[Rfam]
Rfam assigns this 82-nucleotide sequence from Klebsiella pneumoniae to the family "OmrA-B family". A reference for the family is Argaman et al. (2001), "Novel small RNA-encoding genes in the intergenic regions of Escherichia coli", Curr Biol. The family's consensus secondary structure was predicted with WAR.

RNA sequence: CCCAGAGGUAUUGAUAGGUGGAGUCAACGUCACGUUGACCACUUUACUUACACCAGCCUGCGCAGAUGCGCAGGUUUUUUUU
Number, nucleotide and partner (000 for none) at each position: 001c000002c000003c000004a000005g000006a000007g000008g000009u000010a000011u000012u000013g000014a000015u000016a000017g054018g053019u052020g051021g000022a000023g039024u038025c037026a036027a035028c034029g000030u000031c000032a000033c000034g028035u027036u026037g025038a024039c023040c000041a000042c000043u000044u000045u000046a000047c000048u000049u000050a000051c020052a019053c018054c017055a000056g075057c074058c073059u072060g071061c070062g069063c068064a000065g000066a000067u000068g063069c062070g061071c060072a059073g058074g057075u056076u000077u000078u000079u000080u000081u000082u000